[Rfam]
RNA sequence: GCUGGGAGCUUGGCGUACUCCUGUAAUUCGAGCUACUUCGAAGGCCAGAUUUCGGGACGAUUUGAAAUUGGGAUCCCUAACAGGCAGUGUUCUAUGUCGAUCAGACGUCCGAACUAAGCUCGGCAUCGGCAUGGAGUGACUGGCGGAGGCUAGUCAUUCCAGGUCGUCUAAGGAGGGAGAAAUCGAUCGAGGCCUGAAAAGGAGCAGAUAAAACUCCCCGUGUUGAACAGUAGUCGGUUCGCGACUGUGAAUAGGCAUUGUCUGUUAGCCCGAUUAAUAUAGUUGGACUGCUGUCUGU
Numbered sequence: 001g002c003u004g005g006g007a008g009c010u011u012g013g014c015g016u017a018c019u020c021c022u023g024u025a026a027u028u029c030g031a032g033c034u035a036c037u038u039c040g041a042a043g044g045c046c047a048g049a050u051u052u053c054g055g056g057a058c059g060a061u062u063u064g065a066a067a068u069u070g071g072g073a074u075c076c077c078u079a080a081c082a083g084g085c086a087g088u089g090u091u092c093u094a095u096g097u098c099g100a101u102c103a104g105a106c107g108u109c110c111g112a113a114c115u116a117a118g119c120u121c122g123g124c125a126u127c128g129g130c131a132u133g134g135a136g137u138g139a140c141u142g143g144c145g146g147a148g149g150c151u152a153g154u155c156a157u158u159c160c161a162g163g164u165c166g167u168c169u170a171a172g173g174a175g176g177g178a179g180a181a182a183u184c185g186a187u188c189g190a191g192g193c194c195u196g197a198a199a200a201g202g203a204g205c206a207g208a209u210a211a212a213a214c215u216c217c218c219c220g221u222g223u224u225g226a227a228c229a230g231u232a233g234u235c236g237g238u239u240c241g242c243g244a245c246u247g248u249g250a251a252u253a254g255g256c257a258u259u260g261u262c263u264g265u266u267a268g269c270c271c272g273a274u275u276a277a278u279a280u281a282g283u284u285g286g287a288c289u290g291c292u293g294u295c296u297g298u
Stems, first nucleotide, its partner, number of pairs: 001045003004022005027042003047296004053290003058285005066275007077268013091255005097249001102247003106243003109237002113234004118228001120226007127166004132161013167173002175218005186209003193202003
The family of this 298-nucleotide RNA sequence from Dimorphilus gyrociliatus is "Metazoan signal recognition particle RNA". The family is grouped with related families in Rfam's "SRP clan". Rfam classes the family as a non-coding RNA gene. The signal recognition particle (SRP) is a universally conserved ribonucleoprotein. The base pairs follow the family's consensus structure, which is taken from published work. It scores 226 bits against the family's covariance model.